msiK RNA: a 60-nucleotide RNA. Pairs were carried over by alignment from the consensus structure, which is taken from published work.
[Rfam]
RNA sequence: GGCCGUCCACUCCUUUACUCGGAUCGUCCGGCACGUUCCUGCCGGUGAAGGGACACACCA
Dot-bracket structure: ..........(((((((..........((((((......)))))))))))))........